The family of this 171-nucleotide RNA from Halorientalis sp. IM1011 is "Sense overlapping transcript RNA 0042 (sot)". The family's RNA type in Rfam is small RNA. The literature on the family includes a 2015 paper in RNA Biol by Gomes-Filho et al., "Sense overlapping transcripts in IS1341-type transposase genes are functional non-coding RNAs in archaea". The organism belongs to Halorientalis, within Archaea.
RNA sequence: AGGUACUCCCGAGUCUCGCCUGUGACGGGGGAGAUAGGGAUAACGGCUGGAUGGCACAGCCAGCGGUGCGCCUGUUCGAUAAAUCCACGGGGCGAGUAGCCCCACAAGAACAGGCGAACCGCGAACCAUAAUAUCCCAACGCUUGGGAAACCGCGCCGUUUACGGCGCGGA
Numbered sequence: 001a002g003g004u005a006c007u008c009c010c011g012a013g014u015c016u017c018g019c020c021u022g023u024g025a026c027g028g029g030g031g032a033g034a035u036a037g038g039g040a041u042a043a044c045g046g047c048u049g050g051a052u053g054g055c056a057c058a059g060c061c062a063g064c065g066g067u068g069c070g071c072c073u074g075u076u077c078g079a080u081a082a083a084u085c086c087a088c089g090g091g092g093c094g095a096g097u098a099g100c101c102c103c104a105c106a107a108g109a110a111c112a113g114g115c116g117a118a119c120c121g122c123g124a125a126c127c128a129u130a131a132u133a134u135c136c137c138a139a140c141g142c143u144u145g146g147g148a149a150a151c152c153g154c155g156c157c158g159u160u161u162a163c164g165g166c167g168c169g170g171a
Base pairs, nucleotide, nucleotide: 003044004043007040008039009038010037013035014034015033016031017030019028020027045061046060047059048058049057064121065120066119067118069116071114072113073112074111075110076109077108089103090102091101092100093099134148135147136146137145139143151170152169153168154167155166156165157164158163
It is associated with IS1341-type transposase (tnpB) genes, at the 3'-end in H. salinarum NRC-1.